[Rfam]
RNA: c-di-GMP-I riboswitch aptamer
RNA sequence: AAAUACCAAAGGCAAAAUCAUUGAAAAAUGAUGACGCAAAGCUAAAGGGGCCUCUAUUCAGUCGAUAAGGCCAGCCAGCUGCCAUC
Numbered sequence: 001a002a003a004u005a006c007c008a009a010a011g012g013c014a015a016a017a018u019c020a021u022u023g024a025a026a027a028a029u030g031a032u033g034a035c036g037c038a039a040a041g042c043u044a045a046a047g048g049g050g051c052c053u054c055u056a057u058u059c060a061g062u063c064g065a066u067a068a069g070g071c072c073a074g075c076c077a078g079c080u081g082c083c084a085u086c
Stems, first nucleotide, its partner, number of pairs: 012037002017032006040080004047076002049072003056066003